[Rfam]
RNA sequence: AUUCUUUGUGGCAUGCAUUUUAACUACUAUGUAAGUGCUGACCAUCAGCACUAAUACAUUAAUACUUUUAUGUACUUUGUGCGUUAUUGCUAGUCUCCAUGAAUAUAUAGCA
Numbered sequence: 001a002u003u004c005u006u007u008g009u010g011g012c013a014u015g016c017a018u019u020u021u022a023a024c025u026a027c028u029a030u031g032u033a034a035g036u037g038c039u040g041a042c043c044a045u046c047a048g049c050a051c052u053a054a055u056a057c058a059u060u061a062a063u064a065c066u067u068u069u070a071u072g073u074a075c076u077u078u079g080u081g082c083g084u085u086a087u088u089g090c091u092a093g094u095c096u097c098c099a100u101g102a103a104u105a106u107a108u109a110g111c112a
Base pairs, nucleotide, nucleotide: 005103006102007101008100009099010098011095015090016089017088021034023032024031025029035065036064039061040060041059070084071083072082073081074080
This 112-nucleotide sequence from Pan paniscus belongs to the Rfam family "Mitochondrial DNA control region secondary structure A". A reference for the family is Pereira et al. (2008), "Evidence for variable selective pressures at a large secondary structure of the human mitochondrial DNA control region", Mol Biol Evol. Taxonomically the source falls in Pan (Eukaryota, Bilateria, Amniota, Simiiformes). It scores 42 bits against the family's covariance model.